[Rfam]
RNA sequence: GGGGACCUUCGGGGCCCUAUACCAACGGUGGGUUUCACCCACCCUACAUAAGACGGGGAGACCCGUCUAAGCUAAACGGAAGACAGAAA
Numbered sequence: 001g002g003g004g005a006c007c008u009u010c011g012g013g014g015c016c017c018u019a020u021a022c023c024a025a026c027g028g029u030g031g032g033u034u035u036c037a038c039c040c041a042c043c044c045u046a047c048a049u050a051a052g053a054c055g056g057g058g059a060g061a062c063c064c065g066u067c068u069a070a071g072c073u074a075a076a077c078g079g080a081a082g083a084c085a086g087a088a089a
Stems, first nucleotide, its partner, number of pairs: 001018004006014003027067010

A member of the RNA family "L2-Alphaproteobacteria ribosomal protein leader", 89 nucleotides long. For this family Rfam cites "Discovery of 20 novel ribosomal leader candidates in bacteria and archaea" (Eckert and Weinberg, BMC Microbiol, 2020). The family's RNA type in Rfam is cis-regulatory leader.